Shown here is a 74-nucleotide RNA sequence from Medicago truncatula, a member of the family "MIR5272 microRNA precursor family". The family's consensus secondary structure was predicted with RNAalifold. It scores 78 bits against the family's covariance model.
RNA sequence: UUUGAGAUGAAUUGGUUUAUGUUUGAAUACACUUGUUUAAAAGUGAUUGUUAUGAGUUGAUGUUGUUUGGAUAG
Numbered sequence: 001u002u003u004g005a006g007a008u009g010a011a012u013u014g015g016u017u018u019a020u021g022u023u024u025g026a027a028u029a030c031a032c033u034u035g036u037u038u039a040a041a042a043g044u045g046a047u048u049g050u051u052a053u054g055a056g057u058u059g060a061u062g063u064u065g066u067u068u069g070g071a072u073a074g
Stems, first nucleotide, its partner, number of pairs: 011061008021053002026048003030045005